[Rfam]
raiA RNA: a 205-nucleotide RNA from Alkalibaculum bacchi.
RNA sequence: ACGCCUUAGGUCUGUGGUUGAAAAUCGAUGCCAGUCGCAGGCAAAACGAUCCACGUAAGGUAAGCCAAAAGAGCAUACUGAGCAUGGUGCGGCUUAGAUGUAAGACCAGCCAAUUAAGAAAUUGAGAGAAGGAGUUGUGAAGGCGAACCCUAGCUAAACUUCCAGCUGGCGAGUGUGGGGGCAAAGACCAGGUCAGCUAAGGCGG
Numbered sequence: 001a002c003g004c005c006u007u008a009g010g011u012c013u014g015u016g017g018u019u020g021a022a023a024a025u026c027g028a029u030g031c032c033a034g035u036c037g038c039a040g041g042c043a044a045a046a047c048g049a050u051c052c053a054c055g056u057a058a059g060g061u062a063a064g065c066c067a068a069a070a071g072a073g074c075a076u077a078c079u080g081a082g083c084a085u086g087g088u089g090c091g092g093c094u095u096a097g098a099u100g101u102a103a104g105a106c107c108a109g110c111c112a113a114u115u116a117a118g119a120a121a122u123u124g125a126g127a128g129a130a131g132g133a134g135u136u137g138u139g140a141a142g143g144c145g146a147a148c149c150c151u152a153g154c155u156a157a158a159c160u161u162c163c164a165g166c167u168g169g170c171g172a173g174u175g176u177g178g179g180g181g182c183a184a185a186g187a188c189c190a191g192g193u194c195a196g197c198u199a200a201g202g203c204g205g
Stems, first nucleotide, its partner, number of pairs: 002204008012196003015190005028176003031041001033094007050087002058079002061077002064074002085183001106169005111124005128162004137154002142149002

Pairs were carried over by alignment from the consensus structure, which is taken from published work. By type it is a riboswitch.